[Rfam]
RNA: Group II catalytic intron D1-D4-3
RNA sequence: UCCACCGUGAGAUGGAAUCUGAAGGAAGUCCUAGGCAAACUGCUGAACUGAUAUACAAGAAGUGGCUAUCAGGUUAGAUGAGUUGGAUAAGAUUGCUAAACAAAUCACGAUACUAUUCAAAACGAACUCCAGUAAAGCCAACAGUUGCAUGGCAGGAAAGUAUUCAUU
Numbered sequence: 001u002c003c004a005c006c007g008u009g010a011g012a013u014g015g016a017a018u019c020u021g022a023a024g025g026a027a028g029u030c031c032u033a034g035g036c037a038a039a040c041u042g043c044u045g046a047a048c049u050g051a052u053a054u055a056c057a058a059g060a061a062g063u064g065g066c067u068a069u070c071a072g073g074u075u076a077g078a079u080g081a082g083u084u085g086g087a088u089a090a091g092a093u094u095g096c097u098a099a100a101c102a103a104a105u106c107a108c109g110a111u112a113c114u115a116u117u118c119a120a121a122a123c124g125a126a127c128u129c130c131a132g133u134a135a136a137g138c139c140a141a142c143a144g145u146u147g148c149a150u151g152g153c154a155g156g157a158a159a160g161u162a163u164u165c166a167u168u
Base pairs, nucleotide, nucleotide: 001016002015003014004013006011028168035161036160040155041154042153043152044151045150046146047145048144049143050142063140064139065138066137067136073133074132075131077129080128083125085113087111088110091106092105093104094103